[Rfam]
RNA sequence: GGGUAAGUGCUGAGAACUCACUAUGACAUGAAGAGAGGUAAUUACUUAAAAUCAUGCUCAGUAGGAAUACACUGAGGGCC
Dot-bracket structure: ((.(.(.((............................................................)).)...).))
Numbered sequence: 001g002g003g004u005a006a007g008u009g010c011u012g013a014g015a016a017c018u019c020a021c022u023a024u025g026a027c028a029u030g031a032a033g034a035g036a037g038g039u040a041a042u043u044a045c046u047u048a049a050a051a052u053c054a055u056g057c058u059c060a061g062u063a064g065g066a067a068u069a070c071a072c073u074g075a076g077g078g079c080c
Stems, first nucleotide, its partner, number of pairs: 001080002004077001006073001008071002
Shown here is an 80-nucleotide RNA sequence from Sus scrofa, a member of the family "Small nucleolar RNA SNORD115". On this family, see Cavaille et al., Proc Natl Acad Sci U S A 2000: "Identification of brain-specific and imprinted small nucleolar RNA genes exhibiting an unusual genomic organization". It scores 57 bits against the family's covariance model. By type it is a C/D-box small nucleolar RNA. NCBI's taxonomy places the organism under Eukaryota, Opisthokonta, Gnathostomata, Dipnotetrapodomorpha, Sus.